This 174-nucleotide sequence from Lachnellula hyalina belongs to the Rfam family "Small nucleolar RNA snR80". A reference for the family is Schattner et al. (2004), "Genome-wide searching for pseudouridylation guide snoRNAs: analysis of the Saccharomyces cerevisiae genome", Nucleic Acids Res. Pairs were carried over by alignment from the consensus structure, which was predicted with WAR. Gene Ontology terms of the family: RNA processing and nucleolus. It scores 59 bits against the family's covariance model. The family is grouped with related families in Rfam's "SNORA28 clan". NCBI's taxonomy places the organism under Eukaryota, saccharomyceta, Helotiales, Lachnaceae, Lachnellula.

[Rfam]
Nucleotides: 174
Stems, first nucleotide, its partner, number of pairs: 007083003021069004027063004032050007098168003110152004115147003120143002
Number, partner (000 for none) and nucleotide at each position: 001000c002000u003000u004000c005000a006000c007083u008082u009081g010000a011000c012000a013000a014000a015000c016000a017000c018000u019000c020000u021069g022068g023067c024066c025000u026000c027063u028062a029061c030060c031000c032050c033049c034048a035047g036046u037045c038044c039000c040000u041000c042000g043000a044038g045037g046036a047035c048034u049033g050032g051000c052000u053000c054000a055000u056000c057000u058000g059000u060030g061029g062028u063027a064000u065000u066024g067023g068022c069021c070000u071000a072000u073000u074000u075000u076000u077000g078000g079000u080000u081009c082008a083007a084000g085000a086000a087000g088000a089000u090000u091000g092000a093000u094000u095000u096000u097000g098168u099167c100166c101000g102000a103000u104000u105000a106000c107000u108000c109000a110152c111151c112150g113149c114000g115147a116146u117145a118000u119000c120143c121142c122000u123000c124000u125000u126000c127000c128000u129000u130000u131000u132000g133000g134000u135000u136000g137000g138000g139000c140000g141000u142121g143120g144000a145117u146116a147115u148000a149113g150112u151111g152110g153000u154000c155000c156000a157000u158000a159000u160000c161000u162000u163000u164000c165000u166100g167099g168098g169000a170000a171000a172000c173000a174000u